[Rfam]
RNA: Xanthomonadaceae sRNA sX15
Organism: Stenotrophomonas maltophilia
RNA sequence: GUCGAGAGCUCCCCCCGCUUGCCCAGUCUUAUCACUGCGAGUGUCAGCUCCAGCAACUGUUUGGGCGGAUCAAGGGAGAUUCCGGCGUGGGCGCCAAGCUACAUGGCGAUCGUCGAGAUCCAGGCUUGUACGGCGGCCCACGCCGGCUCUCGGCACCUA
Numbered sequence: 001g002u003c004g005a006g007a008g009c010u011c012c013c014c015c016c017g018c019u020u021g022c023c024c025a026g027u028c029u030u031a032u033c034a035c036u037g038c039g040a041g042u043g044u045c046a047g048c049u050c051c052a053g054c055a056a057c058u059g060u061u062u063g064g065g066c067g068g069a070u071c072a073a074g075g076g077a078g079a080u081u082c083c084g085g086c087g088u089g090g091g092c093g094c095c096a097a098g099c100u101a102c103a104u105g106g107c108g109a110u111c112g113u114c115g116a117g118a119u120c121c122a123g124g125c126u127u128g129u130a131c132g133g134c135g136g137c138c139c140a141c142g143c144c145g146g147c148u149c150u151c152g153g154c155a156c157c158u159a
Base pairs, nucleotide, nucleotide: 001154002153003152004151005150006149007148008147009078010077011076012075013074014068015067017066018065019064020063021062024059025058026057027056035053036052039050040049041048042047082146083145084144085143086142087141088140089139090138091137092135093134094133095132108120109119110118111117